Shown here is a 426-nucleotide RNA sequence from Endobacter medicaginis, a member of the family "Bacterial RNase P class A". Ribonuclease P (RNase P) is a ubiquitous endoribonuclease, found in archaea, bacteria and eukarya as well as chloroplasts and mitochondria. Pairs were carried over by alignment from the consensus structure, which is taken from published work.

RNA sequence: CCAGACGGCCGGACGGUCGCUGCGCGGGCCCGGCGACGGGUUUCGCGUGGAGGAAAGUCCGGGCUCCAGAGGAAAGCGGUGCCGGCUAACGGCCGGCGGGGGCGACCCCAGGGACAGUGCCACAGAAAACACACCGCCCGCACGGGGCCGGUCGCCUGUUCGCAGGUCCGGCUUGCGGGUAAGGGCGAAACGGUGCGGCAAGAGCGCACCGCGCCGGCGGCAACGCAGGCGGCAGGGUAAACCCCACCGGGAGCAAGACCGAAUAGGGGCGACAGGCGGGCGUGUCAUGCGCCGCGCCAGGGGUGUUUCCGCCCCCGUUGCCCGGGUUGGUCGCGCGAGGCGCGCAGCGAUGCGCGUCCCAGAGGAAUGACCGUCCCGCAGCGGUGACGCUGCGGACAGAACCCGGCUUACAGGCCGUCUGGCACC
Number, nucleotide and partner (000 for none) at each position: 001c422002c421003a420004g419005a418006c417007g416008g415009c414010c413011g411012g375013a374014c373015g372016g371017u370018c369019g000020c050021u049022g048023c047024g046025c045026g044027g043028g042029c000030c000031c000032g000033g000034c000035g000036a000037c000038g000039g000040g000041u000042u028043u027044c026045g025046c024047g023048u022049g021050g020051a000052g000053g000054a000055a409056a408057g407058u000059c406060c405061g404062g403063g402064c253065u252066c251067c250068a000069g000070a000071g309072g308073a307074a306075a000076g000077c249078g248079g247080u246081g245082c096083c095084g094085g093086c092087u000088a000089a000090c000091g000092g086093c085094c084095g083096g082097c111098g109099g108100g107101g106102g000103c000104g000105a000106c101107c100108c099109c098110a000111g097112g244113g243114a000115c000116a000117g242118u241119g238120c237121c236122a000123c000124a000125g000126a000127a000128a000129a000130c000131a000132c000133a000134c184135c183136g180137c179138c178139c177140g176141c175142a174143c000144g172145g000146g000147g000148c000149c000150g000151g000152u000153c000154g000155c000156c000157u000158g000159u000160u000161c000162g000163c000164a000165g000166g000167u000168c000169c000170g000171g000172c144173u000174u142175g141176c140177g139178g138179g137180u136181a000182a000183g135184g134185g000186c000187g000188a000189a000190a000191c000192g210193g209194u208195g207196c206197g205198g000199c000200a000201a000202g000203a000204g000205c197206g196207c195208a194209c193210c192211g233212c231213g230214c229215c228216g000217g226218c225219g224220g000221c000222a000223a000224c219225g218226c217227a000228g215229g214230c213231g212232g000233c211234a000235g000236g121237g120238u119239a000240a000241a118242c117243c113244c112245c081246a080247c079248c078249g077250g067251g066252a065253g064254c000255a000256a000257g332258a331259c330260c329261g000262a000263a000264u000265a000266g000267g323268g322269g321270c320271g319272a318273c000274a000275g000276g000277c000278g000279g000280g000281c000282g000283u000284g000285u000286c000287a000288u000289g000290c000291g000292c000293c000294g000295c000296g000297c000298c000299a000300g316301g315302g314303g313304u000305g000306u074307u073308u072309c071310c000311g000312c000313c303314c302315c301316c300317g000318u272319u271320g270321c269322c268323c267324g000325g000326g000327u000328u000329g260330g259331u258332c257333g000334c000335g000336c000337g000338a000339g358340g357341c356342g355343c354344g353345c352346a351347g000348c000349g000350a000351u346352g345353c344354g343355c342356g341357u340358c339359c000360c000361a000362g000363a000364g000365g000366a000367a000368u000369g018370a017371c016372c015373g014374u013375c012376c000377c000378g000379c000380a000381g000382c000383g000384g000385u000386g000387a000388c000389g000390c000391u000392g000393c000394g000395g000396a000397c000398a000399g000400a000401a000402c063403c062404c061405g060406g059407c057408u056409u055410a000411c011412a000413g010414g009415c008416c007417g006418u005419c004420u003421g002422g001423c000424a000425c000426c000